[Rfam]
RNA sequence: UGCAAGUUUAAGGGCACAGCAGAAGCACUUAUGGUGCAGCCUGUCAGUUUCCAAUGAAUCUGCAAAUUCUGCU
Numbered sequence: 001u002g003c004a005a006g007u008u009u010a011a012g013g014g015c016a017c018a019g020c021a022g023a024a025g026c027a028c029u030u031a032u033g034g035u036g037c038a039g040c041c042u043g044u045c046a047g048u049u050u051c052c053a054a055u056g057a058a059u060c061u062g063c064a065a066a067u068u069c070u071g072c073u
Stems, first nucleotide, its partner, number of pairs: 013041002018073007025037003045062003049058003
Mammalian CPEB3 ribozyme: a 73-nucleotide RNA sequence from Alligator sinensis.
Rfam's curators write: The mammalian CPEB3 ribozyme is a self cleaving RNA located in the second intron of the CPEB3 gene which belongs to a family of genes regulating messenger RNA polyadenylation.
The base pairs follow the family's consensus structure, which is taken from published work.